[Rfam]
RNA: Group II catalytic intron D1-D4-3
Organism: Novosphingobium endophyticum
Nucleotides: 174
Base pairs, nucleotide, nucleotide: 002015003014004013005012006011028174030172031171036165040160041159042158043157044156045155047152048151049150050149062148063147064146065145066144067143073140074139075138077136078135079134080133081132085113086112087111088110091106092105093104094103
Number, partner (000 for none) and nucleotide at each position: 001000g002015u003014c004013g005012c006011c007000g008000c009000g010000a011006g012005g013004c014003g015002g016000g017000g018000u019000g020000g021000g022000g023000a024000g025000g026000a027000a028174g029000c030172c031171g032000g033000a034000g035000g036165c037000a038000a039000a040160g041159c042158u043157c044156g045155g046000a047152g048151c049150u050149g051000a052000c053000g054000a055000a056000c057000a058000g059000g060000a061000a062148c063147c064146g065145g066144a067143u068000a069000u070000a071000a072000g073140g074139c075138c076000g077136g078135u079134g080133c081132g082000g083000u084000g085113g086112g087111g088110u089000a090000a091106c092105c093104g094103g095000g096000c097000a098000a099000u100000g101000g102000g103094c104093c105092g106091g107000g108000a109000c110088g111087c112086c113085c114000g115000a116000u117000a118000u119000u120000c121000a122000g123000a124000c125000a126000g127000a128000c129000a130000u131000g132081c133080g134079c135078g136077c137000a138075g139074g140073u141000a142000a143067a144066u145065c146064c147063g148062g149050c150049g151048g152047c153000g154000c155045c156044c157043g158042a159041g160040c161000g162000a163000a164000g165036g166000a167000u168000c169000a170000a171031c172030g173000u174028c